This 74-nucleotide RNA from Lepisosteus oculatus belongs to the Rfam family "mir-30 microRNA precursor family". Gene Ontology terms of the family: gene silencing by miRNA and RISC complex. About the family: This family consists of the mammalian microRNA (miRNA) precursor mir-30a. A reference for the family is Mourelatos et al. (2002), "miRNPs: a novel class of ribonucleoproteins containing numerous microRNAs", Genes Dev. A search with the family's covariance model found it, with a score of 65 bits.

RNA sequence: GUAAGGGGUGUAAACAUCCUACACUCUCAGCUGUGACAACAGGGAGCUGGGAGAGGGGUGUUUACGCUCUUUGC
Numbered sequence: 001g002u003a004a005g006g007g008g009u010g011u012a013a014a015c016a017u018c019c020u021a022c023a024c025u026c027u028c029a030g031c032u033g034u035g036a037c038a039a040c041a042g043g044g045a046g047c048u049g050g051g052a053g054a055g056g057g058g059u060g061u062u063u064a065c066g067c068u069c070u071u072u073g074c
Stems, first nucleotide, its partner, number of pairs: 002073005008067013024053009
Dot-bracket structure: .(((((.(((((((((((((...(((((((((............))))))))).))))))))))))).))))).